[Rfam]
Nucleotides: 063
Base pairs, nucleotide, nucleotide: 004058005057006056007055008054009053010052011051015048016047017046018045019044021042022041024040025039
Number, partner (000 for none) and nucleotide at each position: 001000a002000a003000u004058g005057a006056c007055a008054c009053g010052a011051u012000c013000a014000c015048u016047c017046c018045c019044g020000u021042u022041g023000a024040g025039u026000g027000g028000g029000c030000a031000c032000c033000c034000a035000a036000g037000a038000a039025g040024c041022c042021a043000u044019c045018g046017g047016g048015a049000a050000u051011g052010u053009c054008g055007u056006g057005u058004c059000c060000g061000c062000c063000c
Source information
Shown here is a 63-nucleotide RNA from Canis lupus, a member of the family "mir-425 microRNA precursor family". The sequence is in the family's curated seed alignment. A reference for the family is Devor and Samollow (2008), "In vitro and in silico annotation of conserved and nonconserved microRNAs in the genome of the marsupial Monodelphis domestica", J Hered. The family's consensus secondary structure was predicted with RNAalifold.